[Rfam]
RNA sequence: UUCUUAUCAAGAGAAGCUGAGGGAUUUGGCCCGAUGACGCUUCAGCAACCUCUGCAAUUGCAGGAAGGUGCUACCUCCAACAAGAUUUUAAUCUUGAGAGAUAAGAA
Numbered sequence: 001u002u003c004u005u006a007u008c009a010a011g012a013g014a015a016g017c018u019g020a021g022g023g024a025u026u027u028g029g030c031c032c033g034a035u036g037a038c039g040c041u042u043c044a045g046c047a048a049c050c051u052c053u054g055c056a057a058u059u060g061c062a063g064g065a066a067g068g069u070g071c072u073a074c075c076u077c078c079a080a081c082a083a084g085a086u087u088u089u090a091a092u093c094u095u096g097a098g099a100g101a102u103a104a105g106a107a
Stems, first nucleotide, its partner, number of pairs: 001107008013043005021032003026080004044072004049068002051064004076099001081096006
Dot-bracket structure: ((((((((....(((((...(((..[[[[)))......)))))((((.((((((......))))..))))))...(]]]]((((((....))))))..)))))))))
RNA: SAM riboswitch aptamer (S box leader)
Organism: Sporosarcina luteola